[Rfam]
RNA: Small nucleolar RNA snoR99
RNA sequence: GCGUUCUAGGAAUGAACUGGUCCCUCAUACCCAAUGUCCGUCUAAAUCACUUUGUGAGUCGCCUUUUUUGGUUGUAUACUGAUCUUUAUAGAAUGGAAAAUGG
Dot-bracket structure: ....................................(((((............((.(((..................))).)).........)))))......